Source information:
The record is a 91-nucleotide sequence from Solanum lycopersicum, which matches "Small nucleolar RNA snoR109" in Rfam. The family's RNA type in Rfam is H/ACA-box small nucleolar RNA. A search with the family's covariance model found it, with a score of 69 bits. Pairs were carried over by alignment from the consensus structure, which was predicted with WAR. The source organism's lineage runs through Eukaryota, Viridiplantae, Euphyllophyta, Gunneridae and Solanum subgen. Lycopersicon.
RNA sequence: UGGCUGUAGCAACAUGAAUUCAUUUUGAGGAGUUGACUGGCCGGUUGUUGUUCUGCCGUCGACAUAUCAGCUUACCAAACUUCUUAUAUCU
Numbered sequence: 001u002g003g004c005u006g007u008a009g010c011a012a013c014a015u016g017a018a019u020u021c022a023u024u025u026u027g028a029g030g031a032g033u034u035g036a037c038u039g040g041c042c043g044g045u046u047g048u049u050g051u052u053c054u055g056c057c058g059u060c061g062a063c064a065u066a067u068c069a070g071c072u073u074a075c076c077a078a079a080c081u082u083c084u085u086a087u088a089u090c091u
Base pairs, nucleotide, nucleotide: 027085028084029083030082031081032080033079034078039072040071041070043068044067045066047063048062049061050060